[Rfam]
RNA sequence: UGCGCCGAAGCCGGGGCCUGAGCCCAGGUCGCGCGGGCCGCGAACUCGUCGAGCUGCGUUUGAGGCCGGUGCUCAGCUUGCCGGGUCCGGGCCCCGCGCU
Numbered sequence: 001u002g003c004g005c006c007g008a009a010g011c012c013g014g015g016g017c018c019u020g021a022g023c024c025c026a027g028g029u030c031g032c033g034c035g036g037g038c039c040g041c042g043a044a045c046u047c048g049u050c051g052a053g054c055u056g057c058g059u060u061u062g063a064g065g066c067c068g069g070u071g072c073u074c075a076g077c078u079u080g081c082c083g084g085g086u087c088c089g090g091g092c093c094c095c096g097c098g099c100u
Stems, first nucleotide, its partner, number of pairs: 002099004007095001010092003014088005019075005024069002027067004032062002037057002040054001045053003
This 100-nucleotide sequence from Phyllostomus discolor belongs to the Rfam family "mir-1199 microRNA precursor family". Gene Ontology terms of the family: RISC complex and miRNA-mediated post-transcriptional gene silencing. It scores 89 bits against the family's covariance model.